This 131-nucleotide sequence from Canis lupus belongs to the Rfam family "Small nucleolar RNA SNORA38". From the family's description: ACA38 is a member of the H/ACA class of snoRNA that guide the sites of modification of uridines to pseudouridines. It scores 105 bits against the family's covariance model.
[Rfam]
RNA sequence: CCCUCCAACAACAGGUGUGUCUGUGUGGUUUUGUCUUUGGACACAUAAGAAUUAGAGGCAAAGAAACAUGGAUUUGGAGAUGUCUGGGGCCAGCCUUUUCACUGUAGGCUCAAGAUCAACAUUCAAAAUAG
Numbered sequence: 001c002c003c004u005c006c007a008a009c010a011a012c013a014g015g016u017g018u019g020u021c022u023g024u025g026u027g028g029u030u031u032u033g034u035c036u037u038u039g040g041a042c043a044c045a046u047a048a049g050a051a052u053u054a055g056a057g058g059c060a061a062a063g064a065a066a067c068a069u070g071g072a073u074u075u076g077g078a079g080a081u082g083u084c085u086g087g088g089g090c091c092a093g094c095c096u097u098u099u100c101a102c103u104g105u106a107g108g109c110u111c112a113a114g115a116u117c118a119a120c121a122u123u124c125a126a127a128a129u130a131g
Base pairs, nucleotide, nucleotide: 002058003057004056005055016045017044018043019042020041021040022039025031070124071123072122074121092110093109094108095107096106098104